[Rfam]
RNA sequence: CCCUCCGAAGUUUCCCUCAGGAUAGCUGGCGCUCGCUCGAAAAAGCAGUUUUAUCCGGUAAAGCGAAUGACUAGAGGCCUUGGGGCCGAAACGAUCUCAACCUAUUCUCAAACUUUAAAUGGGUAAGAGGCCCGGCUCGCUGGCGUGGAGCCUGGGCGUGGAAUGCGAGUCGCCUAGUGGGCCACUUUUGGUAAGCAGAACUGGCGCUGCGGGAUGAACCGAACGCCGGGUUAAGGCGCCCGAUGCCGACGCUCAUCAGACCCCAGAAAAGGUGUUGGUUGAUAUAGACAGCAGGACGGUGGCCAUGGAAGUCGGAAUCCGCUAAGGAGUGUGUAACAACUCACCUGCCGAAUCAACUAGCCCUGAAAAUGGAUGGCGCUGGAGCGUCGGGCCCAUACCCGGCCGUCGAAGGCAGACCACAAGGUAUCUUUCCAGAGAUACGCCUCGACGAGUAGGAGGGCCGCCGCGGUGGCGCGGAAGCCUCCGGGCGCGGGCCCGGGUGGAGCCGCCGCGGGUGCAGAU
Number, nucleotide and partner (000 for none) at each position: 001c460002c459003c458004u457005c456006c455007g000008a000009a000010g000011u024012u000013u022014c021015c020016c000017u000018c000019a000020g015021g014022a013023u000024a011025g000026c000027u000028g174029g173030c172031g171032c000033u169034c000035g000036c000037u000038c000039g000040a000041a000042a000043a000044a000045g000046c000047a000048g000049u128050u127051u126052u125053a124054u123055c122056c121057g000058g000059u000060a000061a116062a114063g113064c000065g000066a000067a000068u110069g109070a108071c000072u000073a105074g000075a103076g102077g101078c000079c000080u100081u099082g098083g097084g096085g095086c000087c093088g000089a000090a000091a000092c000093g087094a000095u085096c084097u083098c082099a081100a080101c077102c076103u075104a000105u073106u000107c000108u070109c069110a068111a000112a000113c063114u062115u000116u061117a000118a000119a000120u000121g056122g055123g054124u053125a052126a051127g050128a049129g000130g157131c156132c155133c154134g152135g151136c150137u149138c148139g000140c000141u000142g000143g000144c000145g000146u000147g000148g138149a137150g136151c135152c134153u000154g133155g132156g131157c130158g000159u000160g000161g000162a000163a000164u000165g000166c000167g000168a000169g033170u000171c031172g030173c029174c028175u000176a000177g000178u000179g000180g000181g205182c204183c203184a202185c000186u200187u199188u198189u197190g196191g000192u000193a000194a000195g000196c190197a189198g188199a187200a186201c000202u184203g183204g182205c181206g000207c000208u000209g000210c221211g220212g219213g000214a000215u000216g000217a000218a000219c212220c211221g210222a000223a000224c000225g403226c402227c401228g400229g399230g000231u397232u000233a000234a000235g393236g392237c391238g000239c000240c000241c000242g000243a000244u390245g000246c389247c000248g000249a000250c386251g385252c384253u000254c000255a000256u000257c000258a000259g000260a000261c000262c000263c000264c000265a000266g000267a000268a000269a000270a364271g363272g362273u000274g361275u360276u359277g358278g357279u356280u355281g354282a353283u352284a000285u000286a000287g000288a000289c000290a000291g348292c347293a346294g345295g344296a000297c321298g320299g319300u000301g000302g000303c315304c314305a000306u000307g000308g000309a000310a000311g000312u000313c000314g304315g303316a000317a000318u000319c299320c298321g297322c326323u000324a000325a000326g322327g342328a000329g000330u000331g340332u339333g000334u000335a000336a000337c000338a000339a332340c331341u000342c327343a000344c295345c294346u293347g292348c291349c000350g000351a000352a283353u282354c281355a280356a279357c278358u277359a276360g275361c274362c272363c271364u270365g000366a000367a000368a000369a000370u000371g000372g000373a000374u000375g000376g000377c000378g000379c000380u000381g000382g000383a000384g252385c251386g250387u000388c000389g246390g244391g237392c236393c235394c000395a000396u000397a231398c000399c229400c228401g227402g226403c225404c450405g449406u448407c447408g446409a445410a000411g444412g443413c442414a000415g000416a000417c000418c000419a000420c000421a000422a000423g000424g000425u000426a000427u000428c000429u000430u000431u000432c000433c000434a000435g000436a000437g000438a000439u000440a000441c000442g413443c412444c411445u409446c408447g407448a406449c405450g404451a000452g000453u000454a000455g006456g005457a004458g003459g002460g001461c000462c517463g000464c514465c513466g512467c511468g510469g509470u508471g507472g506473c505474g000475c000476g000477g000478a000479a000480g501481c500482c000483u000484c000485c000486g000487g496488g495489c494490g000491c000492g000493g000494g489495c488496c487497c000498g000499g000500g481501u480502g000503g000504a000505g473506c472507c471508g470509c469510c468511g467512c466513g465514g464515g000516u000517g462518c000519a000520g000521a000522u000
The record is a 522-nucleotide part of an RNA from Labeo rohita, which matches "Eukaryotic large subunit ribosomal RNA" in Rfam. The organism belongs to Labeo, within Eukaryota. The base pairs follow the family's consensus structure, which is taken from published work. It scores 2741 bits against the family's covariance model.